[Rfam]
RNA sequence: AGUAAUGGUCGCAGAGCCGCGACCAGGAUAAUAUAAAAAAAGCUCAAACAGA
Number, nucleotide and partner (000 for none) at each position: 001a000002g000003u000004a000005a000006u025007g024008g023009u022010c021011g020012c000013a000014g045015a044016g043017c042018c000019g000020c011021g010022a009023c008024c007025a006026g000027g000028a000029u000030a000031a000032u000033a000034u000035a000036a000037a000038a000039a000040a000041a000042g017043c016044u015045c014046a000047a000048a000049c000050a000051g000052a000
RNA: 6A RNA